[Rfam]
RNA sequence: ACAAUGAUACUUCCGUAGCGAAAGCGCGGCUUCCGGAGUACCCGGGGGUGGUGAGAGUCCAAUGA
Numbered sequence: 001a002c003a004a005u006g007a008u009a010c011u012u013c014c015g016u017a018g019c020g021a022a023a024g025c026g027c028g029g030c031u032u033c034c035g036g037a038g039u040a041c042c043c044g045g046g047g048g049u050g051g052u053g054a055g056a057g058u059c060c061a062a063u064g065a
Stems, first nucleotide, its partner, number of pairs: 012062001013029004030048003034044003049061003